Record summary: The family of this 83-nucleotide sequence from Lupinus angustifolius is "Small nucleolar RNA Z102/R77". It scores 72 bits against the family's covariance model. The family's consensus secondary structure was predicted with PFOLD.

RNA sequence: GAGUGCAAUGAUGAUUAUUGGUUUUCCCUAUUGGUUUGAUUGCCCGAAUGAUGGCAUUUUGUAUUAGCUCUAUCUGAGCAUUC
Dot-bracket structure: .((((................................(..((((........)))).)....................)))).

NCBI's taxonomy places the organism under Eukaryota, Pentapetalae, fabids, Fabaceae, Lupinus. Rfam 15.1 lists 1,346 matches to the family in 224 species. On this family, see Chen et al., Nucleic Acids Res 2003: "The high diversity of snoRNAs in plants: identification and comparative study of 120 snoRNA genes from Oryza sativa". The family is grouped with related families in Rfam's "SNORD44 clan". By type it is a C/D-box small nucleolar RNA.